[Rfam]
RNA sequence: UUAAAGAUACUUUCGUAUAGCCAUAGUCCGAGCGUUAGAAGCGUCGCAGGCAAUGGGUACGGCUCGUCAUAAGAAUGAGGAGAGGUGAGAUUCCUAUGG
Numbered sequence: 001u002u003a004a005a006g007a008u009a010c011u012u013u014c015g016u017a018u019a020g021c022c023a024u025a026g027u028c029c030g031a032g033c034g035u036u037a038g039a040a041g042c043g044u045c046g047c048a049g050g051c052a053a054u055g056g057g058u059a060c061g062g063c064u065c066g067u068c069a070u071a072a073g074a075a076u077g078a079g080g081a082g083a084g085g086u087g088a089g090a091u092u093c094c095u096a097u098g099g
Base pairs, nucleotide, nucleotide: 012096013062014061015060016059017058018057063082064081065080067078068077069076083095084094085093

The record is a 99-nucleotide RNA from Sporanaerobacter acetigenes, which matches "pemK RNA" in Rfam.